[Rfam]
RNA sequence: GCCGCUGUAGGGUAGGAGGAGAGGCGUGUUACCUCAUCAGCUGCCUCCUCUCCCAUCCUCUUGUUCCGCAGAAGC
Numbered sequence: 001g002c003c004g005c006u007g008u009a010g011g012g013u014a015g016g017a018g019g020a021g022a023g024g025c026g027u028g029u030u031a032c033c034u035c036a037u038c039a040g041c042u043g044c045c046u047c048c049u050c051u052c053c054c055a056u057c058c059u060c061u062u063g064u065u066c067c068g069c070a071g072a073a074g075c
Stems, first nucleotide, its partner, number of pairs: 001075002005071004010066001012062001014059004018054002021052004026047001028045001030043002033040002
The family of this 75-nucleotide sequence from Bucorvus abyssinicus is "mir-1759 microRNA precursor family". A search with the family's covariance model found it, with a score of 63 bits. The family has 2 seed sequences and 319 matches in Rfam 15.1. Lineage of the source: Eukaryota > Sarcopterygii > Amniota > Coraciimorphae > Bucorvus. The base pairs follow the family's consensus structure, which was predicted with RNAalifold.